[Rfam]
RNA sequence: UCCUUAUCAAGAGUGGUGGAGGGACAGGCCCUGUGAAACCCGGCAACCUGCGUAACAGUAAGGUGCCAAAUCCUGCGUAGAAAACGAGAGAUGAGGC
Numbered sequence: 001u002c003c004u005u006a007u008c009a010a011g012a013g014u015g016g017u018g019g020a021g022g023g024a025c026a027g028g029c030c031c032u033g034u035g036a037a038a039c040c041c042g043g044c045a046a047c048c049u050g051c052g053u054a055a056c057a058g059u060a061a062g063g064u065g066c067c068a069a070a071u072c073c074u075g076c077g078u079a080g081a082a083a084a085c086g087a088g089a090g091a092u093g094a095g096g097c
Base pairs, nucleotide, nucleotide: 002096003095004094005093006092007091008090013041015040016039017038021031022030023029025075026074027073028072042067043066044065045064047063048062049060050059051058071089076086077085078084

Overview: Shown here is a 97-nucleotide RNA sequence from Acetanaerobacterium elongatum, a member of the family "SAM riboswitch aptamer (S box leader)". The family's consensus secondary structure is taken from published work. Its family is annotated with regulation of gene expression in the Gene Ontology. For this family Rfam cites "The S box regulon: a new global transcription termination control system for methionine and cysteine biosynthesis genes in gram-positive bacteria" (Grundy and Henkin, Mol Microbiol, 1998).